[Rfam]
RNA sequence: GAUAAGCUUUAUACGUGACCGUAGACAGCAGGUGCCGCAAGGCUUAAUGGUGAUUAACGCCUGCCGAGGUUAGAGAGUAUGGGUAUGGCUGUGAAAGCUGGCCCUCCGUUGUCUGCGGAGGGCUUAUUUAUUUAUAAGA
Numbered sequence: 001g002a003u004a005a006g007c008u009u010u011a012u013a014c015g016u017g018a019c020c021g022u023a024g025a026c027a028g029c030a031g032g033u034g035c036c037g038c039a040a041g042g043c044u045u046a047a048u049g050g051u052g053a054u055u056a057a058c059g060c061c062u063g064c065c066g067a068g069g070u071u072a073g074a075g076a077g078u079a080u081g082g083g084u085a086u087g088g089c090u091g092u093g094a095a096a097g098c099u100g101g102c103c104c105u106c107c108g109u110u111g112u113c114u115g116c117g118g119a120g121g122g123c124u125u126a127u128u129u130a131u132u133u134a135u136a137a138g139a
Stems, first nucleotide, its partner, number of pairs: 028064006034043003100124010
Ribosomal protein L10 leader: a 139-nucleotide sequence from Thermacetogenium phaeum. Rfam classes the family as a cis-regulatory leader. A reference for the family is Zengel and Lindahl (1994), "Diverse mechanisms for regulating ribosomal protein synthesis in Escherichia coli", Prog Nucleic Acid Res Mol Biol.